[Rfam]
RNA sequence: GACACCUGACACUCCACUCGGAUCGUCCGGCACGUACCUGCCGGUGGAGGGAAUAAAA
Numbered sequence: 001g002a003c004a005c006c007u008g009a010c011a012c013u014c015c016a017c018u019c020g021g022a023u024c025g026u027c028c029g030g031c032a033c034g035u036a037c038c039u040g041c042c043g044g045u046g047g048a049g050g051g052a053a054u055a056a057a058a
Stems, first nucleotide, its partner, number of pairs: 010051001012049005027044006
A member of the RNA family "msiK RNA" from Winkia neuii, 58 nucleotides long. The family's RNA type in Rfam is cis-regulatory element. It scores 56 bits against the family's covariance model.